[Rfam]
RNA sequence: AACGAUGCCCGGUUCUACCGCACGUCCCCACGUGAGGAUGCGCCUCUGCCGUCUACCCCGCAAUACGCGACUAUGGUGGAAGCGUGAAUCACGUGGAUAGCCGCUCAACAUGGUAGAGCCUCGACAAGUAAUCAAUUUGUUAAAACGGGUGAGCGGUAACGCUAUGAAGCUCCGGGGACGGAGUGAGCGUGGAUGGCCUUAUUUGGAGCAUU
Numbered sequence: 001a002a003c004g005a006u007g008c009c010c011g012g013u014u015c016u017a018c019c020g021c022a023c024g025u026c027c028c029c030a031c032g033u034g035a036g037g038a039u040g041c042g043c044c045u046c047u048g049c050c051g052u053c054u055a056c057c058c059c060g061c062a063a064u065a066c067g068c069g070a071c072u073a074u075g076g077u078g079g080a081a082g083c084g085u086g087a088a089u090c091a092c093g094u095g096g097a098u099a100g101c102c103g104c105u106c107a108a109c110a111u112g113g114u115a116g117a118g119c120c121u122c123g124a125c126a127a128g129u130a131a132u133c134a135a136u137u138u139g140u141u142a143a144a145a146c147g148g149g150u151g152a153g154c155g156g157u158a159a160c161g162c163u164a165u166g167a168a169g170c171u172c173c174g175g176g177g178a179c180g181g182a183g184u185g186a187g188c189g190u191g192g193a194u195g196g197c198c199u200u201a202u203u204u205g206g207a208g209c210a211u212u
Stems, first nucleotide, its partner, number of pairs: 005211004024194004028096003032092004040085004045080002049076002051071001059069003100157008109149001169184006